RNA: MIR2619 microRNA precursor family
RNA sequence: AAACUGCCCCCUAAUUAAAUUUUGCAACUGUAGCAGUUUUGGCUCCCUAAGGCGAAAAAAAUAUAAAAAAAUAACAUGUGACACCUCACUUAGGGUGCCACGUCAGCGUAGACCGAGUCAAAAUUGACCUUGGGGGCCAAAACUGCCACAGGUGCAAAAUUUAGAGGGUGGUUU
Dot-bracket structure: ((.(((((.......(((((((((((.((((.(((((((((((((((.(..........................((.((.((((........)))).)).))..........................).))))))))))))))).)))).)))))))))))...))))).))